[Rfam]
Notes
Xanthomonas sRNA sX9: a 76-nucleotide sequence from Xanthomonas albilineans. On this family, see Schmidtke et al., Nucleic Acids Res 2011: "Genome-wide transcriptome analysis of the plant pathogen Xanthomonas identifies sRNAs with putative virulence functions". A search with the family's covariance model found it, with a score of 52 bits. Pairs were carried over by alignment from the consensus structure, which was predicted with RNAalifold. The source organism's lineage runs through Bacteria, Pseudomonadota, Lysobacterales, Lysobacteraceae and Xanthomonas albilineans.
RNA sequence: AUGUACCCACCGUACACUGCGGUUCCUGUGCGCUGUCCGCGCCGGUCCGACAGUGACUCGGGAUGUUUUGUUGUUA
Numbered sequence: 001a002u003g004u005a006c007c008c009a010c011c012g013u014a015c016a017c018u019g020c021g022g023u024u025c026c027u028g029u030g031c032g033c034u035g036u037c038c039g040c041g042c043c044g045g046u047c048c049g050a051c052a053g054u055g056a057c058u059c060g061g062g063a064u065g066u067u068u069u070g071u072u073g074u075u076a
Stems, first nucleotide, its partner, number of pairs: 002016005020035004025030001048073006
Dot-bracket structure: .(((((.....)))))...((((.(....).))))............((((((..............))))))...